[Rfam]
Nucleotides: 078
Stems, first nucleotide, its partner, number of pairs: 001078006
Number, partner (000 for none) and nucleotide at each position: 001078c002077a003076u004075c005074g006073a007000g008000a009000u010000g011000a012000a013000g014000a015000g016000u017000a018000a019000u020000u021000u022000u023000c024000c025000g026000g027000a028000a029000u030000u031000c032000a033000u034000a035000u036000a037000u038000g039000u040000c041000g042000a043000u044000u045000g046000a047000a048000u049000a050000a051000a052000a053000u054000u055000c056000a057000g058000a059000c060000c061000a062000c063000a064000a065000u066000u067000a068000u069000c070000u071000g072000a073006u074005c075004g076003a077002u078001g